U4atac minor spliceosomal RNA: a 123-nucleotide RNA from Glomus cerebriforme.
It is annotated as a spliceosomal small nuclear RNA.
Rfam describes the family as follows. U4atac is an essential component of the minor U12-type spliceosome complex which is required for removal of the rarer class of eukaryotic introns (AT-AC, U12-type).

RNA sequence: UCAGUCCUUAUCGAGGGGAGAGCAAAGUAUUCAAUGAGGUCCCAUCCGAGAGUACUUCUGCCGACAACCUAUCAACCCCCUAUAAGAUGCUUGCCUCAUUUGCGAGCAUCAAUUUUUGGAAAA
Numbered sequence: 001u002c003a004g005u006c007c008u009u010a011u012c013g014a015g016g017g018g019a020g021a022g023c024a025a026a027g028u029a030u031u032c033a034a035u036g037a038g039g040u041c042c043c044a045u046c047c048g049a050g051a052g053u054a055c056u057u058c059u060g061c062c063g064a065c066a067a068c069c070u071a072u073c074a075a076c077c078c079c080c081u082a083u084a085a086g087a088u089g090c091u092u093g094c095c096u097c098a099u100u101u102g103c104g105a106g107c108a109u110c111a112a113u114u115u116u117u118g119g120a121a122a123a
Base pairs, nucleotide, nucleotide: 005019006018007017008016009015022061023060024059026056027055028054029053030052031051032050038047039046086110087109088108089107090106091105095104097102